Notes:
Rfam assigns this 173-nucleotide sequence from Paenibacillus swuensis to the family "Group II catalytic intron D1-D4-3". The match comes from Rfam's covariance-model search (143 bits). The pairing is the family consensus, mapped onto this sequence. Rfam links the family to the GO term Group II intron splicing. The family has 406 seed sequences and 4,274 matches in Rfam 15.1.
[Rfam]
RNA sequence: UCGACCGUGAGGUCGAAUCUGAAGGAAGCCGGCGGCAAAUCUCCGGUCUGAGGAACACGAACUUCAUAUAAGGCUAGCGUGCGUUGGAUGAGACUGCUUAACAAGUCAAAGCCCAUACUGCCGAAGGCGCAUGAAAGUAAAUGAAGCAGAUAAAUGGAGAGGAAGAUAGCGUU
Dot-bracket structure: ((((((....))))))...........(.((....(...(((((((((((...........((((((.....(((..((((((..((.(..((((........))))...).)).............))))))..)))..)))))))))))...))))))....)....)).)